[Rfam]
The record is a 76-nucleotide sequence from Cupriavidus gilardii, which matches "Cupriavidus-1 RNA" in Rfam.
The organism belongs to Cupriavidus gilardii, within Bacteria.
A search with the family's covariance model found it, with a score of 52 bits.
Pairs were carried over by alignment from the consensus structure, which is taken from published work.
RNA sequence: CUUGCACCGCGGUGACCGGCAGUUCUGCCGAAGGUGGCGCAAGAAGCGUACCGAGUGCCCGCGAUGGCGGGUGCCG
Numbered sequence: 001c002u003u004g005c006a007c008c009g010c011g012g013u014g015a016c017c018g019g020c021a022g023u024u025c026u027g028c029c030g031a032a033g034g035u036g037g038c039g040c041a042a043g044a045a046g047c048g049u050a051c052c053g054a055g056u057g058c059c060c061g062c063g064a065u066g067g068c069g070g071g072u073g074c075c076g
Stems, first nucleotide, its partner, number of pairs: 001043005007036001009035002011016001017030005052076002055074008